[Rfam]
RNA sequence: AUAAUUAACGAUUAAAGAUGAGUAAAUUAAUUUAGAUUCUAAAGUGAAAAACUGACAGUGAGAAGGUUUUGUUUCUGAUUAAUUGAAGAUGGUCUUUUGCUUUAUUGAUUCUACCGAGUUAUUAAUGAGGUAGAUUCGGAGACUUCCGUUACCAAGGCUAAGGGUGGUAGGUAAACCUACCAAACUAAGGUGGUACCGCGGAAAUGAGCGCUUUCGUCCUUGUA
Number, nucleotide and partner (000 for none) at each position: 001a000002u000003a000004a000005u000006u000007a102008a101009c000010g000011a000012u000013u000014a097015a096016a095017g094018a000019u000020g000021a000022g000023u000024a000025a084026a083027u082028u081029a080030a079031u000032u000033u000034a000035g000036a000037u000038u000039c071040u000041a000042a000043a000044g000045u000046g000047a000048a070049a069050a068051a067052c066053u065054g000055a000056c000057a000058g000059u000060g000061a000062g000063a000064a000065g053066g052067u051068u050069u049070u048071g039072u000073u000074u000075c000076u000077g000078a000079u030080u029081a028082a027083u026084u025085g000086a000087a000088g000089a000090u000091g000092g000093u000094c017095u016096u015097u014098u000099g000100c000101u008102u007103u000104a000105u000106u000107g000108a000109u000110u134111c133112u132113a131114c130115c129116g000117a000118g000119u000120u000121a000122u000123u000124a000125a000126u000127g000128a000129g115130g114131u113132a112133g111134a110135u000136u000137c148138g147139g146140a000141g000142a000143c000144u000145u000146c139147c138148g137149u000150u000151a000152c000153c000154a000155a000156g000157g000158c000159u000160a000161a000162g000163g000164g000165u182166g181167g180168u179169a178170g177171g176172u000173a000174a000175a000176c171177c170178u169179a168180c167181c166182a165183a000184a000185c000186u000187a221188a220189g219190g218191u000192g000193g000194u000195a000196c000197c000198g217199c216200g215201g214202a213203a000204a000205u000206g000207a000208g000209c000210g000211c000212u000213u202214u201215c200216g199217u198218c190219c189220u188221u187222g000223u000224a000

The family of this 224-nucleotide RNA sequence from Nicoliella spurrieriana is "T-box leader". The base pairs follow the family's consensus structure, which is taken from published work. It scores 100 bits against the family's covariance model. It is annotated as a cis-regulatory leader.